Rfam assigns this 190-nucleotide sequence from Laceyella tengchongensis to the family "Lysine riboswitch aptamer". Rfam's curators write: Riboswitches are metabolite binding domains within certain messenger RNAs that serve as precision sensors for their corresponding targets.
[Rfam]
RNA sequence: UGAUGAGGUAGAGGUUGCGACUUUUAUUAGUACAUGACCUGAGAUCCAGAGAAGAUCAGUGACGGCCAUGGAAAGGAAAAGUCGCCGAAGUUUCCCUGCAUUCUCUGGGCAGGGAUGCUGGGUCUGUACCCGAACAGGGGCAGAACUGUCACGCAUAUUCAUUUAAUAUGCGUGGUGUGCUAUCUUCAGG
Numbered sequence: 001u002g003a004u005g006a007g008g009u010a011g012a013g014g015u016u017g018c019g020a021c022u023u024u025u026a027u028u029a030g031u032a033c034a035u036g037a038c039c040u041g042a043g044a045u046c047c048a049g050a051g052a053a054g055a056u057c058a059g060u061g062a063c064g065g066c067c068a069u070g071g072a073a074a075g076g077a078a079a080a081g082u083c084g085c086c087g088a089a090g091u092u093u094c095c096c097u098g099c100a101u102u103c104u105c106u107g108g109g110c111a112g113g114g115a116u117g118c119u120g121g122g123u124c125u126g127u128a129c130c131c132g133a134a135c136a137g138g139g140g141c142a143g144a145a146c147u148g149u150c151a152c153g154c155a156u157a158u159u160c161a162u163u164u165a166a167u168a169u170g171c172g173u174g175g176u177g178u179g180c181u182a183u184c185u186u187c188a189g190g
Stems, first nucleotide, its partner, number of pairs: 006185006017085009033070004038065002089119003093115007120147002123144005129138002149175009